[Rfam]
Nucleotides: 073
Base pairs, nucleotide, nucleotide: 001073002072003071004070005069006068007067009063010062014058015057017055018054019053020052021051022050023049024048025047027045029042030041031040032039033038
Number, partner (000 for none) and nucleotide at each position: 001073g002072g003071c004070c005069c006068g007067g008000a009063g010062u011000c012000u013000c014058g015057g016000a017055g018054g019053a020052u021051c022050g023049c024048u025047c026000a027045g028000a029042c030041u031040c032039u033038g034000c035000c036000a037000g038033c039032a040031g041030a042029g043000a044000c045027c046000c047025g048024g049023g050022c051021g052020a053019u054018c055017c056000c057015c058014c059000u060000c061000c062010a063009c064000u065000c066000c067007c068006c069005g070004g071003g072002c073001c